[Rfam]
RNA sequence: UGGGAUAGCUAGACGACCGCGCGUUAUCUGCGCUUUAGAGUGCAGAUGGCUCGAGGAACGUCCGGGCUCCACAGAGCAGGGUGGUGGGUAACACCCACUCGGGGUAACCCGCAGGCUAGUGCCACAGAAAACAGACCGCCUCUUUUUCCUUCGGGGAGUGAGGUAAGGGUGAAACGGUGGUGUAAGAGACCACCAGCCGUCCAGGUGACUGGAUGGGCUAGGUAAACCCCACUCGGAGCAAGGCCAGACAGGGCGCGUUUGAGGGCUGCUCGCCCGAGUGUCCGGGUAGGCUGCUGGAAGGCAUCGGCAACGGUGACUGUAGAUGGAUGGUCGUCGCGGCGUCGCCGGUAACAGCGUCGCUGAACAGAACCCGGCGUAUCGGCUAUCCCAUCCG
Numbered sequence: 001u002g003g004g005a006u007a008g009c010u011a012g013a014c015g016a017c018c019g020c021g022c023g024u025u026a027u028c029u030g031c032g033c034u035u036u037a038g039a040g041u042g043c044a045g046a047u048g049g050c051u052c053g054a055g056g057a058a059c060g061u062c063c064g065g066g067c068u069c070c071a072c073a074g075a076g077c078a079g080g081g082u083g084g085u086g087g088g089u090a091a092c093a094c095c096c097a098c099u100c101g102g103g104g105u106a107a108c109c110c111g112c113a114g115g116c117u118a119g120u121g122c123c124a125c126a127g128a129a130a131a132c133a134g135a136c137c138g139c140c141u142c143u144u145u146u147u148c149c150u151u152c153g154g155g156g157a158g159u160g161a162g163g164u165a166a167g168g169g170u171g172a173a174a175c176g177g178u179g180g181u182g183u184a185a186g187a188g189a190c191c192a193c194c195a196g197c198c199g200u201c202c203a204g205g206u207g208a209c210u211g212g213a214u215g216g217g218c219u220a221g222g223u224a225a226a227c228c229c230c231a232c233u234c235g236g237a238g239c240a241a242g243g244c245c246a247g248a249c250a251g252g253g254c255g256c257g258u259u260u261g262a263g264g265g266c267u268g269c270u271c272g273c274c275c276g277a278g279u280g281u282c283c284g285g286g287u288a289g290g291c292u293g294c295u296g297g298a299a300g301g302c303a304u305c306g307g308c309a310a311c312g313g314u315g316a317c318u319g320u321a322g323a324u325g326g327a328u329g330g331u332c333g334u335c336g337c338g339g340c341g342u343c344g345c346c347g348g349u350a351a352c353a354g355c356g357u358c359g360c361u362g363a364a365c366a367g368a369a370c371c372c373g374g375c376g377u378a379u380c381g382g383c384u385a386u387c388c389c390a391u392c393c394g
Stems, first nucleotide, its partner, number of pairs: 001390010011379001012335007020053002023050011058377003062374005067238004074271004079234005084098005099113001100111004114229002119227002121223003136168002138164005144158005176194006196218001197216008242292004251283006263275004299318002302315005

The family of this 394-nucleotide RNA sequence from Psychromicrobium silvestre is "Bacterial RNase P class A". It scores 306 bits against the family's covariance model. Rfam classes the family as a ribozyme. Lineage of the source: Bacteria > Actinomycetota > Actinomycetes > Micrococcaceae > Psychromicrobium.